[Rfam]
Background
The family of this 101-nucleotide RNA sequence is "Small nucleolar RNA Z103". Its family is annotated with nucleolus and RNA processing in the Gene Ontology. Rfam 15.1 lists 2,844 matches to the family in 233 species. By type it is a C/D-box small nucleolar RNA.
RNA sequence: AUGGAUGUGAGGACUAUUUCCCCAGAUGAUCGAAGGUGAUAUAACUGUGCUAAUAAAAUUUCUCCAUUCAUGGAGAAAUUCAAGCCAAUAUUCUGAUCCAU
Numbered sequence: 001a002u003g004g005a006u007g008u009g010a011g012g013a014c015u016a017u018u019u020c021c022c023c024a025g026a027u028g029a030u031c032g033a034a035g036g037u038g039a040u041a042u043a044a045c046u047g048u049g050c051u052a053a054u055a056a057a058a059u060u061u062c063u064c065c066a067u068u069c070a071u072g073g074a075g076a077a078a079u080u081c082a083a084g085c086c087a088a089u090a091u092u093c094u095g096a097u098c099c100a101u
Stems, first nucleotide, its partner, number of pairs: 001101005
It is one of the family's seed sequences.